[Rfam]
RNA: Acido-Lenti-1 RNA
RNA sequence: CCCAGGGCGCUGCCCUGGGCUGCGCUAGGCCGCGCCUUUGGCGCU
Dot-bracket structure: ((((((((...))))))))............(((((...))))).